[Rfam]
Rfam assigns this 202-nucleotide sequence from Galemys pyrenaicus to the family "Connexin-43 internal ribosome entry site (IRES)". The source organism's lineage runs through Eukaryota, Eumetazoa, Vertebrata, Euteleostomi and Galemys. This family represents the connexin-43 internal ribosome entry site (IRES) which allows cap independent translation during conditions such as heat shock and stress. Gene Ontology term of the family: ribosome binding. The base pairs follow the family's consensus structure, which is taken from published work.

RNA sequence: AGCUUUUACGAGGUAUCAGCACUUUUCUUUCAUUAGGGGGUAGGAGUAAAGAAAGUACCAAACAGCAGCAGACUUUUAAACUUUAAAUAGACAGGUCUGAGUGCCUGAACUUGCUUCUUCAUUUUACUUCGUCUUCUAAGGAGUUCAAUCACUUGGCGCGCCUACUACACUUCUUUUAAGAGAAAGAGUAAGUUAAAAAAUU
Numbered sequence: 001a002g003c004u005u006u007u008a009c010g011a012g013g014u015a016u017c018a019g020c021a022c023u024u025u026u027c028u029u030u031c032a033u034u035a036g037g038g039g040g041u042a043g044g045a046g047u048a049a050a051g052a053a054a055g056u057a058c059c060a061a062a063c064a065g066c067a068g069c070a071g072a073c074u075u076u077u078a079a080a081c082u083u084u085a086a087a088u089a090g091a092c093a094g095g096u097c098u099g100a101g102u103g104c105c106u107g108a109a110c111u112u113g114c115u116u117c118u119u120c121a122u123u124u125u126a127c128u129u130c131g132u133c134u135u136c137u138a139a140g141g142a143g144u145u146c147a148a149u150c151a152c153u154u155g156g157c158g159c160g161c162c163u164a165c166u167a168c169a170c171u172u173c174u175u176u177u178a179a180g181a182g183a184a185a186g187a188g189u190a191a192g193u194u195a196a197a198a199a200a201u202u
Stems, first nucleotide, its partner, number of pairs: 002020003007015003029143003033139007040130001042128002048123002051120001053119003070098006099114001101112001103110001153197002156194001158193002165186002168182001170180003